[Rfam]
CopA-like RNA: an 89-nucleotide sequence from Citrobacter rodentium. In several groups of bacterial plasmids, antisense RNAs regulate copy number through inhibition of replication initiator protein synthesis. The family's RNA type in Rfam is antisense RNA. The organism belongs to Citrobacter rodentium, within Bacteria. For this family Rfam cites "Structural analysis of an RNA molecule involved in replication control of plasmid R1" (Gerhart et al., Nucleic Acids Res, 1986).

RNA sequence: AUAGCUGAAUUGUUGGCUAUACGGUUUAAGUGGGCCCCGGUAAUCUUUCUAGUCGCCAAACUUUGAGAAGAUUAUCGGGGUUUUUGCUU
Numbered sequence: 001a002u003a004g005c006u007g008a009a010u011u012g013u014u015g016g017c018u019a020u021a022c023g024g025u026u027u028a029a030g031u032g033g034g035c036c037c038c039g040g041u042a043a044u045c046u047u048u049c050u051a052g053u054c055g056c057c058a059a060a061c062u063u064u065g066a067g068a069a070g071a072u073u074a075u076c077g078g079g080g081u082u083u084u085u086g087c088u089u
Stems, first nucleotide, its partner, number of pairs: 001020005028089004032083016